[Rfam]
This 131-nucleotide RNA sequence from Pseudogymnoascus sp. VKM F-3775 belongs to the Rfam family "U4 spliceosomal RNA". Its family is annotated with spliceosomal tri-snRNP complex assembly and U4 snRNP in the Gene Ontology. Rfam describes the family as follows. U4 small nuclear RNA (U4 snRNA) is a component of the major U2-dependent spliceosome.
RNA sequence: AACCUAGUGCACGGGCUUUAUGUGUAUCAGUGAGGAUUCGUCCGAGAUCACAUUUUUGCUAGUUGAAAACUAUAACUAUGACCGCUCCUCUCGGUUUUCGGACUGGGAGGGAAUCUUUGGAACAUGACUUU
Numbered sequence: 001a002a003c004c005u006a007g008u009g010c011a012c013g014g015g016c017u018u019u020a021u022g023u024g025u026a027u028c029a030g031u032g033a034g035g036a037u038u039c040g041u042c043c044g045a046g047a048u049c050a051c052a053u054u055u056u057u058g059c060u061a062g063u064u065g066a067a068a069a070c071u072a073u074a075a076c077u078a079u080g081a082c083c084g085c086u087c088c089u090c091u092c093g094g095u096u097u098u099c100g101g102a103c104u105g106g107g108a109g110g111g112a113a114u115c116u117u118u119g120g121a122a123c124a125u126g127a128c129u130u131u
Stems, first nucleotide, its partner, number of pairs: 020053005026048003034043003086111011
Dot-bracket structure: ...................(((((.(((.....(((....)))..))))))))................................(((((((((((....)))))))))))....................